[Rfam]
RNA: Small nucleolar RNA SNORD24
RNA sequence: UGCCAAUGAUAUUAGAAUGAUAUUUGCUACUCUUGAUGAGUCAAUGCUCAUUUGAUGAUUACUUAUCCGCCAAGAUCUCUGAGGCA
Number, nucleotide and partner (000 for none) at each position: 001u086002g085003c084004c083005a000006a000007u000008g000009a000010u000011a000012u000013u000014a000015g000016a000017a000018u000019g000020a000021u000022a000023u000024u000025u000026g000027c000028u000029a000030c000031u000032c000033u000034u000035g000036a000037u000038g000039a000040g000041u000042c000043a000044a000045u000046g000047c000048u000049c000050a000051u000052u000053u000054g000055a000056u000057g000058a000059u000060u000061a000062c000063u000064u000065a000066u000067c000068c000069g000070c000071c000072a000073a000074g000075a000076u000077c000078u000079c000080u000081g000082a000083g004084g003085c002086a001